[Rfam]
RNA sequence: CCAAUCCCGCCGCCGUACCGGAUGUCCGGUCGACGAUGUGGAUCGGCGGGAGCGGAGGACCCGAGCACGACGGGGCCCCGGCCUUCCCGGCCGCGGGUUCCUUGGGGUGAAGCCGUACGCAUGGCCGGGCAUCUUCGCCUGCCCGAACCCGACAGGUCUUCCUUCGUAGGCGGCUGACGAAGGGUUU
Dot-bracket structure: (...((((((((...............................))))))))((((((....((((...................................))))(((.....((((....))))..((((..........))))...)))...........)))))).)..................